Notes:
Shown here is a 101-nucleotide RNA from Oceanisphaera avium, a member of the family "Glycine riboswitch aptamer".
[Rfam]
RNA sequence: UCAAGCCAGCCGGGAGAGAGCGCCGAGUAAUGGUAUUACUUAGCGCCGCCGAAGGAGCAACGACCCCGUAAACUCUCAGGCAAAAGGACCGGUGGCUGUAG
Numbered sequence: 001u002c003a004a005g006c007c008a009g010c011c012g013g014g015a016g017a018g019a020g021c022g023c024c025g026a027g028u029a030a031u032g033g034u035a036u037u038a039c040u041u042a043g044c045g046c047c048g049c050c051g052a053a054g055g056a057g058c059a060a061c062g063a064c065c066c067c068g069u070a071a072a073c074u075c076u077c078a079g080g081c082a083a084a085a086g087g088a089c090c091g092g093u094g095g096c097u098g099u100a101g
Stems, first nucleotide, its partner, number of pairs: 007095001009093005020046004048081003051077002055075003061068002